[Rfam]
RNA sequence: UCCUUCUUGCUACAGCACUCUGCUAAAAUUGUGAAAUCUAAGUCUUGUUUGACUUAGUUCUUGUGAUAAUGAAAGAGUACACCCAGGAAGGAGAGUAAUUGCACAGUGUCAUAAAUGAGACCCUGGUGUACCUCUUUCUUAAUGUCCAGUGUCUUUGGUCUCAAGAUCCUGUGCUACAGCU
Numbered sequence: 001u002c003c004u005u006c007u008u009g010c011u012a013c014a015g016c017a018c019u020c021u022g023c024u025a026a027a028a029u030u031g032u033g034a035a036a037u038c039u040a041a042g043u044c045u046u047g048u049u050u051g052a053c054u055u056a057g058u059u060c061u062u063g064u065g066a067u068a069a070u071g072a073a074a075g076a077g078u079a080c081a082c083c084c085a086g087g088a089a090g091g092a093g094a095g096u097a098a099u100u101g102c103a104c105a106g107u108g109u110c111a112u113a114a115a116u117g118a119g120a121c122c123c124u125g126g127u128g129u130a131c132c133u134c135u136u137u138c139u140u141a142a143u144g145u146c147c148a149g150u151g152u153c154u155u156u157g158g159u160c161u162c163a164a165g166a167u168c169c170u171g172u173g174c175u176a177c178a179g180c181u
Base pairs, nucleotide, nucleotide: 018077019076024074028070029069030068031067034061038057039056040055041054042053043052044051101174102173103172104171105170106169108167125150127148128147130145
Source information: A member of the RNA family "Small nucleolar RNA SNORA81" from Anguilla anguilla, 181 nucleotides long. The family's consensus secondary structure was predicted with WAR. For this family Rfam cites "A novel experimental approach for systematic identification of box H/ACA snoRNAs from eukaryotes" (Gu et al., Nucleic Acids Res, 2005).